[Rfam]
RNA sequence: UCAUGAACUAUGUACUGCACACAUAACUUAAAUGGGUUCUAGAAAGUCACAAAGCAG
Numbered sequence: 001u002c003a004u005g006a007a008c009u010a011u012g013u014a015c016u017g018c019a020c021a022c023a024u025a026a027c028u029u030a031a032a033u034g035g036g037u038u039c040u041a042g043a044a045a046g047u048c049a050c051a052a053a054g055c056a057g
Base pairs, nucleotide, nucleotide: 019037020036022034023033024032

Rfam assigns this 57-nucleotide RNA from Carpinus fangiana to the family "Plastid-ndhJ 3UTR RNA". The organism belongs to Carpinus, within Eukaryota. Plastid ndhJ is a non-coding RNA (ncRNA) present in plastids. It was identified as a short stem-loop motif in the 3 prime untranslate region (3UTR) of ndhJ gene. On this family, see Richter et al., Plant Commun 2023: "Retrograde signaling in plants: A critical review focusing on the GUN pathway and beyond". Rfam 15.1 lists 869 matches to the family in 155 species.